[Rfam]
RNA sequence: ACACAGGAAGGGAGGUGGUCCGAGAAAUUGAGUGACAUACGGACAAGUGAGGUGGCUGCUAGCUAGCAGCACCAGGAGUGUGAUGAGCGUCUUGGCUCUUCGCACACGCGUUUCGCGCACCCUGCGAGCGCUGGCGAAUACCAAGUAGCCACCCGGCCCCCGAGCCCUUGGUUGGUCCAACCGAGAUCAAACGGCUCGGGGGCUGCUCCGU
Numbered sequence: 001a002c003a004c005a006g007g008a009a010g011g012g013a014g015g016u017g018g019u020c021c022g023a024g025a026a027a028u029u030g031a032g033u034g035a036c037a038u039a040c041g042g043a044c045a046a047g048u049g050a051g052g053u054g055g056c057u058g059c060u061a062g063c064u065a066g067c068a069g070c071a072c073c074a075g076g077a078g079u080g081u082g083a084u085g086a087g088c089g090u091c092u093u094g095g096c097u098c099u100u101c102g103c104a105c106a107c108g109c110g111u112u113u114c115g116c117g118c119a120c121c122c123u124g125c126g127a128g129c130g131c132u133g134g135c136g137a138a139u140a141c142c143a144a145g146u147a148g149c150c151a152c153c154c155g156g157c158c159c160c161c162g163a164g165c166c167c168u169u170g171g172u173u174g175g176u177c178c179a180a181c182c183g184a185g186a187u188c189a190a191a192c193g194g195c196u197c198g199g200g201g202g203c204u205g206c207u208c209c210g211u
Base pairs, nucleotide, nucleotide: 014060015059016058017057018056019055062135063134064133065132066131067130069129070128072126074123075122076121154205155204156203157202158201159200160199161198162197163196164195165194166193167185168184169183170182171181172180